[Rfam]
RNA sequence: GAAAUCCCGCCCGGGUAACCGCUAGCCACGGCCCCGGUAUCGAGCCUUGCAGUCAGCGCGGUAACGGGUUGAUUGAUGCGUAGGCACGAAAGCAGGCGAAGUGCAAAGGUAACGGGUGAAGCCGACCCUGAAGAUGUAGAGCCCCGAAAAUUAUUUCUUGGAGAGUGCCGACCGGUUUGACCCUCCGGCAGGCAACAAGCGGCAUCGCGAUGAGGCGAGUAAUGCGGCUCCUCCCCGGGGUCCGAAGCCG
Numbered sequence: 001g002a003a004a005u006c007c008c009g010c011c012c013g014g015g016u017a018a019c020c021g022c023u024a025g026c027c028a029c030g031g032c033c034c035c036g037g038u039a040u041c042g043a044g045c046c047u048u049g050c051a052g053u054c055a056g057c058g059c060g061g062u063a064a065c066g067g068g069u070u071g072a073u074u075g076a077u078g079c080g081u082a083g084g085c086a087c088g089a090a091a092g093c094a095g096g097c098g099a100a101g102u103g104c105a106a107a108g109g110u111a112a113c114g115g116g117u118g119a120a121g122c123c124g125a126c127c128c129u130g131a132a133g134a135u136g137u138a139g140a141g142c143c144c145c146g147a148a149a150a151u152u153a154u155u156u157c158u159u160g161g162a163g164a165g166u167g168c169c170g171a172c173c174g175g176u177u178u179g180a181c182c183c184u185c186c187g188g189c190a191g192g193c194a195a196c197a198a199g200c201g202g203c204a205u206c207g208c209g210a211u212g213a214g215g216c217g218a219g220u221a222a223u224g225c226g227g228c229u230c231c232u233c234c235c236c237g238g239g240g241u242c243c244g245a246a247g248c249c250g
Stems, first nucleotide, its partner, number of pairs: 012036004019031003023218001025216002038091001040089002044085004048080002050075008059066002139242001141241006161235001163233003167193003172188004198229003202225004207220002
Shown here is a 250-nucleotide sequence from Microbulbifer rhizosphaerae, a member of the family "Group II catalytic intron D1-D4-6". NCBI's taxonomy places the organism under Bacteria, Pseudomonadati, Gammaproteobacteria, Cellvibrionales, Microbulbifer. From the family's description: Group II introns are found in rRNA, tRNA and mRNA of organelles in fungi, plants and protists, and also in mRNA in bacteria. The literature on the family includes a 2003 paper in Crit Rev Biochem Mol Biol by Lehmann and Schmidt, "Group II introns: structure and catalytic versatility of large natural ribozymes". The base pairs follow the family's consensus structure.